[Rfam]
RNA sequence: GUGCAUCCAAUAGGAAUUUUACCUAUGAAUUCACCAAUUAUGAGUUAAAUGCUUUAACCAUUUAGCCAUAGAUGC
Numbered sequence: 001g002u003g004c005a006u007c008c009a010a011u012a013g014g015a016a017u018u019u020u021a022c023c024u025a026u027g028a029a030u031u032c033a034c035c036a037a038u039u040a041u042g043a044g045u046u047a048a049a050u051g052c053u054u055u056a057a058c059c060a061u062u063u064a065g066c067c068a069u070a071g072a073u074g075c
Stems, first nucleotide, its partner, number of pairs: 003075005010026005040069003044066008
The family of this 75-nucleotide RNA sequence from Centaurea solstitialis is "Plastid-ycf2 5UTR RNA".
Lineage of the source: Eukaryota > Embryophyta > Mesangiospermae > eudicotyledons > Centaurea.
The base pairs follow the family's consensus structure, which was predicted with LocARNA.
On this family, see Richter et al., Plant Commun 2023: "Retrograde signaling in plants: A critical review focusing on the GUN pathway and beyond".
About the family: Plastid ycf2 is a non-coding RNA (ncRNA) recognised in plastids. It was found in the prime untranslated region (5UTR) of ycf2 genes, it presents a tRNA-like motif which suggests it can be involved in mRNA maturation, particularly involved in defining the precise 5' end of the transcript.